[Rfam]
RNA sequence: GUUGCUUUGGCCGAGUGGUUAAGGCGUGUGCUUGCUAAGUACAUGUGGUUUGCCCGCGAGAGUUCGAAUCUCUAAGGCGACG
Numbered sequence: 001g002u003u004g005c006u007u008u009g010g011c012c013g014a015g016u017g018g019u020u021a022a023g024g025c026g027u028g029u030g031c032u033u034g035c036u037a038a039g040u041a042c043a044u045g046u047g048g049u050u051u052g053c054c055c056g057c058g059a060g061a062g063u064u065c066g067a068a069u070c071u072c073u074a075a076g077g078c079g080a081c082g
Stems, first nucleotide, its partner, number of pairs: 001081007010025003027043005059073004
RNA: tRNA
Organism: Eucalyptus grandis